Source information: This 122-nucleotide RNA sequence from Sphaerotilus mobilis belongs to the Rfam family "Burkholderia RNA 11". A reference for the family is Ramos et al. (2013), "Experimental identification of small non-coding regulatory RNAs in the opportunistic human pathogen Burkholderia cenocepacia J2315", Genomics. About the family: Co-purified with Hfq, expression confirmed by Northern blot.
[Rfam]
RNA sequence: CCAACCUGAAGCUGGCCCACGGCAACCGGGUGGUGUUCCGCUCGCUGCUGGGCAUCUCCUGGAUGUGGUUCUUCGGCGCGGUCUUCCUGAGCCAGUUCCCGUCCUUCGCCAAGGAUGUGCUG
Numbered sequence: 001c002c003a004a005c006c007u008g009a010a011g012c013u014g015g016c017c018c019a020c021g022g023c024a025a026c027c028g029g030g031u032g033g034u035g036u037u038c039c040g041c042u043c044g045c046u047g048c049u050g051g052g053c054a055u056c057u058c059c060u061g062g063a064u065g066u067g068g069u070u071c072u073u074c075g076g077c078g079c080g081g082u083c084u085u086c087c088u089g090a091g092c093c094a095g096u097u098c099c100c101g102u103c104c105u106u107c108g109c110c111a112a113g114g115a116u117g118u119g120c121u122g
Base pairs, nucleotide, nucleotide: 010049011048012047014045018040021037022036023035024034026032051121052120053119054118055117057115058114059113060112062110063105065103067099068098071095072094077089078088080087081086
Background:
The base pairs follow the family's consensus structure, which was predicted with RNAfold. Its family is annotated with protein binding in the Gene Ontology. NCBI's taxonomy places the organism under Bacteria, Pseudomonadati, Pseudomonadota, Betaproteobacteria, Sphaerotilus. The family's RNA type in Rfam is small RNA.